[Rfam]
RNA sequence: AUGGAUAUAGAGUUUGAUGAGUCCUUCAAUGGGUCUUGAAAAGCAGGGCAAUUUGGAGAGAGAGACUCUCUCUCUCCAAAUUCAGACAUCAGUUUGAUUUGCUUAGCCAUCAGUUAGAGCUUCAUCCAGAUUCUGGCAAUGGCGAUGGCUAAGGCCUAGAAAACCGGCAAGUCACAGAACGGCAAGGGACUCUUAUAAGUCUU
Numbered sequence: 001a002u003g004g005a006u007a008u009a010g011a012g013u014u015u016g017a018u019g020a021g022u023c024c025u026u027c028a029a030u031g032g033g034u035c036u037u038g039a040a041a042a043g044c045a046g047g048g049c050a051a052u053u054u055g056g057a058g059a060g061a062g063a064g065a066c067u068c069u070c071u072c073u074c075u076c077c078a079a080a081u082u083c084a085g086a087c088a089u090c091a092g093u094u095u096g097a098u099u100u101g102c103u104u105a106g107c108c109a110u111c112a113g114u115u116a117g118a119g120c121u122u123c124a125u126c127c128a129g130a131u132u133c134u135g136g137c138a139a140u141g142g143c144g145a146u147g148g149c150u151a152a153g154g155c156c157u158a159g160a161a162a163a164c165c166g167g168c169a170a171g172u173c174a175c176a177g178a179a180c181g182g183c184a185a186g187g188g189a190c191u192c193u194u195a196u197a198a199g200u201c202u203u
Stems, first nucleotide, its partner, number of pairs: 055077003092164004102154003188201004
Description: The family of this 203-nucleotide RNA from Actinidia chinensis is "Early nodulin 40". Its family is annotated with nodulation in the Gene Ontology. Lineage of the source: Eukaryota > Streptophyta > Streptophytina > Mesangiospermae > Actinidia chinensis.